[Rfam]
RNA: DUF3800-IX RNA
RNA sequence: UACUGCCCAGUGAAGAGUCGCCGACUGUGGCGGCCUGCUACCGGACAUUGAGCCGGAGCUAGUUGGGCGGUUUUUC
Numbered sequence: 001u002a003c004u005g006c007c008c009a010g011u012g013a014a015g016a017g018u019c020g021c022c023g024a025c026u027g028u029g030g031c032g033g034c035c036u037g038c039u040a041c042c043g044g045a046c047a048u049u050g051a052g053c054c055g056g057a058g059c060u061a062g063u064u065g066g067g068c069g070g071u072u073u074u075u076c
Stems, first nucleotide, its partner, number of pairs: 002071010017034006037059003041056004